A member of the RNA family "Small Cajal body specific RNA 6" from Pachycephala philippinensis, 271 nucleotides long. A reference for the family is Darzacq et al. (2002), "Cajal body-specific small nuclear RNAs: a novel class of 2'-O-methylation and pseudouridylation guide RNAs", EMBO J. The base pairs follow the family's consensus structure, which is taken from published work. It scores 103 bits against the family's covariance model. Rfam classes the family as a small Cajal body RNA. Rfam describes the family as follows. U88 is small Cajal body specific RNA (scaRNA). scaRNAs are a novel class of small nuclear RNAs which localise to the Cajal bodies. U88 is found associated with both fibrillarin and Gar1p and co-localises with coilin in Cajal bodies.

[Rfam]
RNA sequence: GGUCAAUGAUGAGAAAGAAGUUUUCUGAGGGCACAGGGAAAUUCCACCCCAUUACCCUCUUGGCUCCCAGCAGUCCCUAUUCUAUCAUGCCAUAGCAGAGCUGUGAUUGAGGAAGAGAUUGCUGACAGUAUGGGAUUAAUUCAGUUCCAGUUCUCCACAGUGAAGGGAGUUGUGGCACCAAAUGUAAUCCAACAAACCUGGUGAAGAGGAGCUCGUGGUGGUGGGGUGUCCUCAUUUGCUGUGCAUGAUCAAAGGUUUUCAAGCUGAGACC
Numbered sequence: 001g002g003u004c005a006a007u008g009a010u011g012a013g014a015a016a017g018a019a020g021u022u023u024u025c026u027g028a029g030g031g032c033a034c035a036g037g038g039a040a041a042u043u044c045c046a047c048c049c050c051a052u053u054a055c056c057c058u059c060u061u062g063g064c065u066c067c068c069a070g071c072a073g074u075c076c077c078u079a080u081u082c083u084a085u086c087a088u089g090c091c092a093u094a095g096c097a098g099a100g101c102u103g104u105g106a107u108u109g110a111g112g113a114a115g116a117g118a119u120u121g122c123u124g125a126c127a128g129u130a131u132g133g134g135a136u137u138a139a140u141u142c143a144g145u146u147c148c149a150g151u152u153c154u155c156c157a158c159a160g161u162g163a164a165g166g167g168a169g170u171u172g173u174g175g176c177a178c179c180a181a182a183u184g185u186a187a188u189c190c191a192a193c194a195a196a197c198c199u200g201g202u203g204a205a206g207a208g209g210a211g212c213u214c215g216u217g218g219u220g221g222u223g224g225g226g227u228g229u230c231c232u233c234a235u236u237u238g239c240u241g242u243g244c245a246u247g248a249u250c251a252a253a254g255g256u257u258u259u260c261a262a263g264c265u266g267a268g269a270c271c
Base pairs, nucleotide, nucleotide: 001271002270003269004268036250041249042248043247046227047226048225049224050223051222052221053220064211065210066209067208068124069123070122071121072120073119074118081110082109084107085106086105087104088103089102090100132190134189135188136187137186138185147175148174149173153169154168155167156166